[Rfam]
RNA sequence: UGCGCCACCUCGGGGUGCCAGAUGUGACCAACAGCUGGCUGAGAUGCAAUCGUGUGAACCCGUUGAACCUGAACCGGUUAAGACCGGCGGAGGGAAGGUCUGGACAGUCUCC
Numbered sequence: 001u002g003c004g005c006c007a008c009c010u011c012g013g014g015g016u017g018c019c020a021g022a023u024g025u026g027a028c029c030a031a032c033a034g035c036u037g038g039c040u041g042a043g044a045u046g047c048a049a050u051c052g053u054g055u056g057a058a059c060c061c062g063u064u065g066a067a068c069c070u071g072a073a074c075c076g077g078u079u080a081a082g083a084c085c086g087g088c089g090g091a092g093g094g095a096a097g098g099u100c101u102g103g104a105c106a107g108u109c110u111c112c
Stems, first nucleotide, its partner, number of pairs: 007099004011062004016056001017039005046055003068093003074087004
About this RNA: Shown here is a 112-nucleotide RNA from Thalassovita taeanensis, a member of the family "TPP riboswitch aptamer (THI element)". The source organism's lineage runs through Bacteria, Pseudomonadati, Pseudomonadota, Roseobacteraceae and Thalassovita. About the family: Vitamin B(1) in its active form thiamin pyrophosphate (TPP) is an essential coenzyme that is synthesised by coupling of pyrimidine and thiazole moieties in bacteria. The match comes from Rfam's covariance-model search (67 bits).